[Rfam]
RNA: Purine riboswitch aptamer
RNA sequence: AAUCGAACCACCCAUACUCUCUGUAUAACCUUAAGAAUACGGCUUAAGGGUCUCUACCAGGAACCGCAAAAUCCUGAUUACAGAAAACGACUUUUCGUUU
Numbered sequence: 001a002a003u004c005g006a007a008c009c010a011c012c013c014a015u016a017c018u019c020u021c022u023g024u025a026u027a028a029c030c031u032u033a034a035g036a037a038u039a040c041g042g043c044u045u046a047a048g049g050g051u052c053u054c055u056a057c058c059a060g061g062a063a064c065c066g067c068a069a070a071a072u073c074c075u076g077a078u079u080a081c082a083g084a085a086a087a088c089g090a091c092u093u094u095u096c097g098u099u100u
Stems, first nucleotide, its partner, number of pairs: 018086001020084006029049007058076005